[Rfam]
RNA: MIR394 microRNA precursor family
Organism: Hibiscus syriacus
RNA sequence: CUUACAGAGUUCAUUGGCAUUCUGUCCACCUCCUCAUCAUAGCAAAAAAAAAAACCCAGUUUUUUUCCUUAUUUGAUUUUUCAUGGAGGUGGGAAUACUGCCAACUGGGCUCUUUUGG
Numbered sequence: 001c002u003u004a005c006a007g008a009g010u011u012c013a014u015u016g017g018c019a020u021u022c023u024g025u026c027c028a029c030c031u032c033c034u035c036a037u038c039a040u041a042g043c044a045a046a047a048a049a050a051a052a053a054a055c056c057c058a059g060u061u062u063u064u065u066u067c068c069u070u071a072u073u074u075g076a077u078u079u080u081u082c083a084u085g086g087a088g089g090u091g092g093g094a095a096u097a098c099u100g101c102c103a104a105c106u107g108g109g110c111u112c113u114u115u116u117g118g
Stems, first nucleotide, its partner, number of pairs: 011108001014104006023095001025093009